Mason-Pfizer monkey virus packaging signal: a 272-nucleotide sequence from Nannospalax galili. Rfam classes the family as a cis-regulatory element. Lineage of the source: Eukaryota > Opisthokonta > Craniata > Vertebrata > Nannospalax. It scores 165 bits against the family's covariance model. Rfam links the family to the GO term viral genome packaging.

RNA sequence: UGGCGCCCAACGUGGGGCCUGGAUACUGGGGACAGCGUGAGGGACACAACGGAGGAAAAAGGGGUGUGUACCCGCUCAAAUAAUUCGGAGACGCUGUGGGAGCCUGCCGCGACUGAGCCGAAGGUAAGUUGGUCAUUCAAUCAUGGAGCAAGAAUUAAGCCAGCAUCAGAUUUAUGUGAUACAGUUAAGAGAAGCUCUGCAGGCAAGAGGAGUAAAGGUUAAAACUGAGGAUUUAUUUCAUUUCUUUGAUUUUGUAAAGGACAUUUGUCCCU
Numbered sequence: 001u002g003g004c005g006c007c008c009a010a011c012g013u014g015g016g017g018c019c020u021g022g023a024u025a026c027u028g029g030g031g032a033c034a035g036c037g038u039g040a041g042g043g044a045c046a047c048a049a050c051g052g053a054g055g056a057a058a059a060a061g062g063g064g065u066g067u068g069u070a071c072c073c074g075c076u077c078a079a080a081u082a083a084u085u086c087g088g089a090g091a092c093g094c095u096g097u098g099g100g101a102g103c104c105u106g107c108c109g110c111g112a113c114u115g116a117g118c119c120g121a122a123g124g125u126a127a128g129u130u131g132g133u134c135a136u137u138c139a140a141u142c143a144u145g146g147a148g149c150a151a152g153a154a155u156u157a158a159g160c161c162a163g164c165a166u167c168a169g170a171u172u173u174a175u176g177u178g179a180u181a182c183a184g185u186u187a188a189g190a191g192a193a194g195c196u197c198u199g200c201a202g203g204c205a206a207g208a209g210g211a212g213u214a215a216a217g218g219u220u221a222a223a224a225c226u227g228a229g230g231a232u233u234u235a236u237u238u239c240a241u242u243u244c245u246u247u248g249a250u251u252u253u254g255u256a257a258a259g260g261a262c263a264u265u266u267g268u269c270c271c272u
Stems, first nucleotide, its partner, number of pairs: 006031003012026003037047002082125001084123001085121002092115001095111005132149001134148001136147004156199002159195002207247006216234005257272001259270004